[Rfam]
RNA sequence: UGGACAGUAUCGGAUGAACUGUACCUUCAUGCAGUAACUUUUUUACAAAAAAGAUCUGCCCUGAUCAAUUAGACAGGGACGGAAGA
Number, nucleotide and partner (000 for none) at each position: 001u000002g025003g024004a022005c021006a020007g019008u018009a000010u017011c016012g000013g000014a000015u000016g011017a010018a008019c007020u006021g005022u004023a000024c003025c002026u000027u000028c000029a000030u000031g000032c000033a000034g000035u000036a000037a000038c000039u000040u000041u000042u000043u000044u000045a000046c000047a000048a000049a000050a000051a000052a000053g000054a000055u000056c082057u081058g080059c078060c077061c076062u075063g074064a000065u073066c072067a000068a000069u000070u000071a000072g066073a065074c063075a062076g061077g060078g059079a000080c058081g057082g056083a000084a000085g000086a000
The record is an 86-nucleotide RNA sequence from Ureibacillus endophyticus, which matches "pan motif" in Rfam. Taxonomically the source falls in Ureibacillus (Bacteria, Bacillati, Bacillota, Bacilli). By type it is a cis-regulatory element. A search with the family's covariance model found it, with a score of 59 bits.